RNA sequence: CUGUGAGAGGAAUGAUGUACUACUACAGGGCUCUCAAGAUGCUUGCAUUUCUUGAUUCAGCAUCCGAAAUGGAUAUUCGG
Numbered sequence: 001c002u003g004u005g006a007g008a009g010g011a012a013u014g015a016u017g018u019a020c021u022a023c024u025a026c027a028g029g030g031c032u033c034u035c036a037a038g039a040u041g042c043u044u045g046c047a048u049u050u051c052u053u054g055a056u057u058c059a060g061c062a063u064c065c066g067a068a069a070u071g072g073a074u075a076u077u078c079g080g
Stems, first nucleotide, its partner, number of pairs: 001080003005077002
Dot-bracket structure: (((.((.....................................................................)))))
RNA: Small nucleolar RNA J33